[Rfam]
RNA sequence: AAUAUAAUUUUAUAAUCAACUCGUAUAAUAGCAGGAAUAUGGCCUGCGAGUAUCUACCGACCACCCUAAAUGGAUCGACUACGAGUGAAUUUUAGAUACUU
Numbered sequence: 001a002a003u004a005u006a007a008u009u010u011u012a013u014a015a016u017c018a019a020c021u022c023g024u025a026u027a028a029u030a031g032c033a034g035g036a037a038u039a040u041g042g043c044c045u046g047c048g049a050g051u052a053u054c055u056a057c058c059g060a061c062c063a064c065c066c067u068a069a070a071u072g073g074a075u076c077g078a079c080u081a082c083g084a085g086u087g088a089a090u091u092u093u094a095g096a097u098a099c100u101u
Base pairs, nucleotide, nucleotide: 019086020085021084022083023082024081025080029049031047032046033045034044035043058077059076060075061073062072063071
RNA: Purine riboswitch aptamer